RNA sequence: AAUUGAAUACGAUUUCUACCUAAGACUCAGGAGGCAUUUGCCUUAAUAUCCUGCCGAGGAAGUUUACAACGACUUUAAUUCCCUCGGCUCAAGUUUGCUUGACCGGGGGAUUUUCUUUUGAGAAA
Numbered sequence: 001a002a003u004u005g006a007a008u009a010c011g012a013u014u015u016c017u018a019c020c021u022a023a024g025a026c027u028c029a030g031g032a033g034g035c036a037u038u039u040g041c042c043u044u045a046a047u048a049u050c051c052u053g054c055c056g057a058g059g060a061a062g063u064u065u066a067c068a069a070c071g072a073c074u075u076u077a078a079u080u081c082c083c084u085c086g087g088c089u090c091a092a093g094u095u096u097g098c099u100u101g102a103c104c105g106g107g108g109g110a111u112u113u114u115c116u117u118u119u120g121a122g123a124a125a
Stems, first nucleotide, its partner, number of pairs: 028053005033042003080110008089101001
RNA: Ribosomal protein L10 leader